[Rfam]
RNA sequence: UGGACAGAUUAUUAUAUUCGAUUGUAUUCACGGCGUGAAAUAGGGUAUUACACUAUUUUUAAGACGAAAAGUGAAUCAAUUAACAUAAUAGACUCAU
Numbered sequence: 001u002g003g004a005c006a007g008a009u010u011a012u013u014a015u016a017u018u019c020g021a022u023u024g025u026a027u028u029c030a031c032g033g034c035g036u037g038a039a040a041u042a043g044g045g046u047a048u049u050a051c052a053c054u055a056u057u058u059u060u061a062a063g064a065c066g067a068a069a070a071g072u073g074a075a076u077c078a079a080u081u082a083a084c085a086u087a088a089u090a091g092a093c094u095c096a097u
Stems, first nucleotide, its partner, number of pairs: 003095002009091007017083002020081002023078002026076006034066003037059007
A member of the RNA family "MIR6152 microRNA precursor family" from Nicotiana tabacum, 97 nucleotides long. Pairs were carried over by alignment from the consensus structure, which was predicted with RNAalifold.